[Rfam]
RNA sequence: AGCUCAAUGAUUGCACGCCUUAUAGGCAAUAUACGCUAUGCCGAUUAAAAGCAUGAGUAGAUAAAUUUAUUCAAGUAUGAGAGCU
Numbered sequence: 001a002g003c004u005c006a007a008u009g010a011u012u013g014c015a016c017g018c019c020u021u022a023u024a025g026g027c028a029a030u031a032u033a034c035g036c037u038a039u040g041c042c043g044a045u046u047a048a049a050a051g052c053a054u055g056a057g058u059a060g061a062u063a064a065a066u067u068u069a070u071u072c073a074a075g076u077a078u079g080a081g082a083g084c085u
Stems, first nucleotide, its partner, number of pairs: 001085005